RNA sequence: GUCGGAUACGGAGACAUGCACCCUGUGACAAUUGGGGGCAAAAUUGUUGGGUCAUUGUGUGCUAUUGCCGGAGUGUUGACUAUUGCUCUCCCUGUGCCGGUUAUUGUCUCCAAC
Numbered sequence: 001g002u003c004g005g006a007u008a009c010g011g012a013g014a015c016a017u018g019c020a021c022c023c024u025g026u027g028a029c030a031a032u033u034g035g036g037g038g039c040a041a042a043a044u045u046g047u048u049g050g051g052u053c054a055u056u057g058u059g060u061g062c063u064a065u066u067g068c069c070g071g072a073g074u075g076u077u078g079a080c081u082a083u084u085g086c087u088c089u090c091c092c093u094g095u096g097c098c099g100g101u102u103a104u105u106g107u108c109u110c111c112a113a114c
Stems, first nucleotide, its partner, number of pairs: 001114002004111002008107004013102003018097004037077004049063002
The record is a 114-nucleotide sequence from Oncorhynchus mykiss, which matches "Potassium channel RNA editing signal" in Rfam. Pairs were carried over by alignment from the consensus structure, which is taken from published work. This family represents a group of sequences related to the human potassium channel Kv1.1 hairpin element which directs the efficient modification of an adenosine to inosine by an adenosine deaminase acting on RNA (ADAR). The ADAR modification causes an isoleucine/valine recoding event which lies in the ion-conducting pore of the potassium channel. It is thought that this editing event targets the process of fast inactivation and allows a more rapid recovery from inactivation at negative potentials. Taxonomically the source falls in Oncorhynchus (Eukaryota, Craniata, Vertebrata, Protacanthopterygii). For this family Rfam cites "Control of human potassium channel inactivation by editing of a small mRNA hairpin" (Bhalla et al., Nat Struct Mol Biol, 2004).